L20-Deltaproteobacteria ribosomal protein leader: a 60-nucleotide sequence. Pairs were carried over by alignment from the consensus structure, which is taken from published work. Rfam classes the family as a cis-regulatory leader. A reference for the family is Eckert and Weinberg (2020), "Discovery of 20 novel ribosomal leader candidates in bacteria and archaea", BMC Microbiol.
[Rfam]
RNA sequence: CGCCAAGAACCGCGAGGAUAGUCUCCCCUUGCGGAUCGGGCAAAUUUAAUAAUCAAGGAG
Numbered sequence: 001c002g003c004c005a006a007g008a009a010c011c012g013c014g015a016g017g018a019u020a021g022u023c024u025c026c027c028c029u030u031g032c033g034g035a036u037c038g039g040g041c042a043a044a045u046u047u048a049a050u051a052a053u054c055a056a057g058g059a060g
Stems, first nucleotide, its partner, number of pairs: 003040002007037002010034008